The record is a 209-nucleotide RNA from Nelumbo nucifera, which matches "Small nucleolar RNA Z112" in Rfam. The base pairs follow the family's consensus structure, which was predicted with PFOLD. Its Rfam clan is "SNORD49 clan". A search with the family's covariance model found it, with a score of 64 bits. A reference for the family is Liang et al. (2002), "A novel gene organization: intronic snoRNA gene clusters from Oryza sativa", Nucleic Acids Res.
RNA sequence: UUCCCGAUGAGGAAGCAUGCCCUUGAUAGGAAGUGCCGUAUGACACUCCAAACAGCAGCGGUGCAGUCUCUUUAUCUCACAGAACUAACGACUCUCCUCUGAUUGCUUUCAAUUUAUUUGAUUUGCUUUCUUAGGGUUUCGUUUUGUUUUUUGUUUUGGGAUGAAGGGCUCCCGCUGUGUGCGUGAUUUGAAAUGGGUCUCUGAGGGUC
Numbered sequence: 001u002u003c004c005c006g007a008u009g010a011g012g013a014a015g016c017a018u019g020c021c022c023u024u025g026a027u028a029g030g031a032a033g034u035g036c037c038g039u040a041u042g043a044c045a046c047u048c049c050a051a052a053c054a055g056c057a058g059c060g061g062u063g064c065a066g067u068c069u070c071u072u073u074a075u076c077u078c079a080c081a082g083a084a085c086u087a088a089c090g091a092c093u094c095u096c097c098u099c100u101g102a103u104u105g106c107u108u109u110c111a112a113u114u115u116a117u118u119u120g121a122u123u124u125g126c127u128u129u130c131u132u133a134g135g136g137u138u139u140c141g142u143u144u145u146g147u148u149u150u151u152u153g154u155u156u157u158g159g160g161a162u163g164a165a166g167g168g169c170u171c172c173c174g175c176u177g178u179g180u181g182c183g184u185g186a187u188u189u190g191a192a193a194u195g196g197g198u199c200u201c202u203g204a205g206g207g208u209c
Stems, first nucleotide, its partner, number of pairs: 003207003070166009079152001081150005087143005